[Rfam]
RNA sequence: CUGUGCUAGACGGGGAGGUUGCGGUGCCCUGUAACCUGCAAUCCGCAAUAGCAGGGUUGAAUUCCUGUCAGAGGAGUUCUCAUGUGAGGCUGCCUUGUAGGGGCGGUGUUGAGGAGCGGGUCCUGUGCGACGCGAACCCAUGAACCUGGUCAGGUCCGGAAGGAAGCAGCCAUAAGUGGUAUUUCGCGUGUGCCGCAGGGGUGCCUGCUCUGAGCUGGCCCUACAAGUAACGCUUGGAUGGGAAUAUUCAAUGGCAGGUGCACAG
Dot-bracket structure: ((((((..(((((((.(.(...).).))))....(((((...........)))))))).....(((((((..(((...(((((.((((..((..((((((..(((((.....(((((((((((((((((.(((((..((((.....((((....(((....)))....))))...))))....)))))))...))))))...)))))))))..))).)).)))))).))...)))).)))))....)))..))))))).))))))
RNA: Bacterial large signal recognition particle RNA